[Rfam]
RNA sequence: AAAAAAGUAGUGGUUUGUUGCCUUUGUUAAUUGGUCUAACCUCUCGUAAACUUCAGGAACAAAUCACCAUUGCUUUUGGGUGAACCUCUAUUCUUUAUUUGUGACUCAAGGUUCAGUUAAUGAUGGAAAAAAU
Numbered sequence: 001a002a003a004a005a006a007g008u009a010g011u012g013g014u015u016u017g018u019u020g021c022c023u024u025u026g027u028u029a030a031u032u033g034g035u036c037u038a039a040c041c042u043c044u045c046g047u048a049a050a051c052u053u054c055a056g057g058a059a060c061a062a063a064u065c066a067c068c069a070u071u072g073c074u075u076u077u078g079g080g081u082g083a084a085c086c087u088c089u090a091u092u093c094u095u096u097a098u099u100u101g102u103g104a105c106u107c108a109a110g111g112u113u114c115a116g117u118u119a120a121u122g123a124u125g126g127a128a129a130a131a132a133u
Stems, first nucleotide, its partner, number of pairs: 005053003012041001014039002017036001067126006074119001081115007
RNA: Small nucleolar RNA snoR74
Organism: Lupinus angustifolius